[Rfam]
RNA sequence: CCUCGCUCAGAAGACUUGUUAUCCAAGUUACACACAGAGAACACAGUUUCUCAUUAUUGACUUGGGGGAAAGUCCCUGGACCCUGGGUAGAGAGUGCCACAUAAUAAUCUUGUUAUGUCUGCUUAGUCUGCAGUCCUCUUCAUACUGGCUAUGAGGUUGUUAGAAUCGAGCCUGAGGAUAGACUAGGCAGUCGUCAGAGCACAGUCAUGCAAGUACCACUUCUGUAGUGGUAACACAACAGGGCUCACUCUCUGAGUAAC
Numbered sequence: 001c002c003u004c005g006c007u008c009a010g011a012a013g014a015c016u017u018g019u020u021a022u023c024c025a026a027g028u029u030a031c032a033c034a035c036a037g038a039g040a041a042c043a044c045a046g047u048u049u050c051u052c053a054u055u056a057u058u059g060a061c062u063u064g065g066g067g068g069a070a071a072g073u074c075c076c077u078g079g080a081c082c083c084u085g086g087g088u089a090g091a092g093a094g095u096g097c098c099a100c101a102u103a104a105u106a107a108u109c110u111u112g113u114u115a116u117g118u119c120u121g122c123u124u125a126g127u128c129u130g131c132a133g134u135c136c137u138c139u140u141c142a143u144a145c146u147g148g149c150u151a152u153g154a155g156g157u158u159g160u161u162a163g164a165a166u167c168g169a170g171c172c173u174g175a176g177g178a179u180a181g182a183c184u185a186g187g188c189a190g191u192c193g194u195c196a197g198a199g200c201a202c203a204g205u206c207a208u209g210c211a212a213g214u215a216c217c218a219c220u221u222c223u224g225u226a227g228u229g230g231u232a233a234c235a236c237a238a239c240a241g242g243g244c245u246c247a248c249u250c251u252c253u254g255a256g257u258a259a260c
Stems, first nucleotide, its partner, number of pairs: 003259001005257007014214006022066007037052005071245002074243004086098004099118008120189003124185006134178004147172003156166003216230005
Overview: RNase MRP: a 260-nucleotide RNA from Strongylocentrotus purpuratus. Taxonomically the source falls in Strongylocentrotus (Eukaryota, Metazoa, Eumetazoa, Camarodonta). Gene Ontology terms of the family: ribonuclease MRP activity, rRNA processing and ribonuclease MRP complex. It is annotated as a ribozyme. The match comes from Rfam's covariance-model search (140 bits).